[Rfam]
RNA sequence: GGGGGCGAAUGGGGGCUGGUGUCCCUCCCGGUCUUCAAAACCGUGUGUGGCGUCGAAAAGGCGCUUGGUGGGUUCGAUUCCUACACGCUCCC
Numbered sequence: 001g002g003g004g005g006c007g008a009a010u011g012g013g014g015g016c017u018g019g020u021g022u023c024c025c026u027c028c029c030g031g032u033c034u035u036c037a038a039a040a041c042c043g044u045g046u047g048u049g050g051c052g053u054c055g056a057a058a059a060g061g062c063g064c065u066u067g068g069u070g071g072g073u074u075c076g077a078u079u080c081c082u083a084c085a086c087g088c089u090c091c092c
Base pairs, nucleotide, nucleotide: 001092002091003090004089005088006087007086011026012025013024014023015022016021027045029043030042031041032040049065050064051063052062069083070082071081072080
RNA: Selenocysteine transfer RNA